epsC RNA: a 116-nucleotide sequence from Bacillus salinus.
[Rfam]
Nucleotides: 116
Stems, first nucleotide, its partner, number of pairs: 001019004007034007035099004039094008049068007071083004102116005
Number, partner (000 for none) and nucleotide at each position: 001019a002018g003017g004016u005000g006000a007034u008033g009032u010031c011030u012029c013028c014000u015000a016004a017003c018002c019001u020000u021000u022000a023000u024000c025000a026000a027000c028013g029012g030011a031010g032009g033008c034007a035099c036098u037097c038096g039094g040093u041092c042091a043090u044089a045088c046087c047000g048000u049068g050067g051066g052065u053064g054063g055062u056000c057000a058000g059000a060000g061000c062055g063054u064053c065052a066051c067050c068049u069000u070000a071083g072082a073081c074080g075000c076000a077000a078000g079000u080074c081073g082072u083071c084000a085000u086000a087046g088045g089044u090043a091042u092041g093040a094039u095000g096038u097037g098036a099035g100000g101000g102116u103115g104114g105113g106112u107000u108000g109000g110000a111000u112106g113105c114104c115103c116102a

The base pairs follow the family's consensus structure, which is taken from published work. It is annotated as a cis-regulatory element. A search with the family's covariance model found it, with a score of 116 bits.